[Rfam]
RNA: Small nucleolar RNA SNORD115
Nucleotides: 081
Base pairs, nucleotide, nucleotide: 001081002080004078005075006074008072009071
Number, partner (000 for none) and nucleotide at each position: 001081g002080g003000g004078u005075c006074a007000a008072u009071g010000a011000u012000g013000a014000a015000a016000u017000c018000u019000u020000u021000g022000u023000c024000u025000u026000g027000g028000c029000u030000c031000a032000a033000g034000u035000g036000a037000g038000g039000u040000g041000u042000u043000g044000u045000c046000u047000u048000a049000a050000a051000a052000g053000u054000c055000u056000u057000g058000u059000g060000c061000a062000a063000u064000a065000g066000a067000a068000u069000u070000a071009u072008g073000g074006u075005g076000a077000g078004g079000a080002c081001c